[Rfam]
RNA sequence: UUCUUAUCAAGAGAGGUAGAGGGAAUGGCCCGAUGAAACCUCAGCAACCUUCAGUGAUUUCUGCUGAAAAGGUGCUAAGUCCAGCAAGUUCGAUGACGAACUUGGGAGAUAAGGA
Number, nucleotide and partner (000 for none) at each position: 001u115002u114003c113004u112005u111006a110007u109008c108009a000010a000011g000012a000013g042014a041015g040016g039017u038018a000019g000020a000021g031022g030023g029024a000025a000026u083027g082028g081029c023030c022031c021032g000033a000034u000035g000036a000037a000038a017039c016040c015041u014042c013043a076044g075045c074046a073047a000048c072049c071050u068051u067052c066053a065054g064055u063056g000057a000058u000059u000060u000061c000062u000063g055064c054065u053066g052067a051068a050069a000070a000071g049072g048073u046074g045075c044076u043077a000078a000079g000080u107081c028082c027083a026084g000085c104086a103087a102088g101089u100090u099091c000092g000093a000094u000095g000096a000097c000098g000099a090100a089101c088102u087103u086104g085105g000106g000107a080108g008109a007110u006111a005112a004113g003114g002115a001
The record is a 115-nucleotide RNA from Fictibacillus enclensis, which matches "SAM riboswitch aptamer (S box leader)" in Rfam. A search with the family's covariance model found it, with a score of 98 bits. The source organism's lineage runs through Bacteria, Bacillota, Bacilli, Caryophanales and Fictibacillus.